[Rfam]
RNA sequence: UGAUGGCAAUGAUGAUUUCAACUCACAAUUCAAUCUUUCGAUAAAUAUGAGGGUGUUCAGUCACUACCCAUCUGAUGCCAUCU
Numbered sequence: 001u002g003a004u005g006g007c008a009a010u011g012a013u014g015a016u017u018u019c020a021a022c023u024c025a026c027a028a029u030u031c032a033a034u035c036u037u038u039c040g041a042u043a044a045a046u047a048u049g050a051g052g053g054u055g056u057u058c059a060g061u062c063a064c065u066a067c068c069c070a071u072c073u074g075a076u077g078c079c080a081u082c083u
Base pairs, nucleotide, nucleotide: 002082003081004080005079006078007077
Rfam assigns this 83-nucleotide RNA from Ursus maritimus to the family "Small nucleolar RNA SNORD11B".
Rfam links the family to the GO terms RNA processing and nucleolus.
The literature on the family includes a 2006 paper in Nucleic Acids Res by Yang et al., "snoSeeker: an advanced computational package for screening of guide and orphan snoRNA genes in the human genome".
Rfam 15.1 lists 733 matches to the family in 632 species.
Rfam classes the family as a C/D-box small nucleolar RNA.
The family is grouped with related families in Rfam's "SNORD11 clan".